[Rfam]
RNA sequence: GGACAGAUAGCUCAGUCGGUAGAGCACAGCACUGAAAAUGCUGGGGUCGCCGGUUCAAGCCCGGCUCUGUCCA
Dot-bracket structure: (((((((..((((........)))).(((((.......))))).....(((((.......)))))))))))).

tRNA: a 73-nucleotide RNA from Tuwongella immobilis. The family's RNA type in Rfam is transfer RNA. Taxonomically the source falls in Tuwongella (Bacteria, Pseudomonadati, Planctomycetota, Gemmataceae).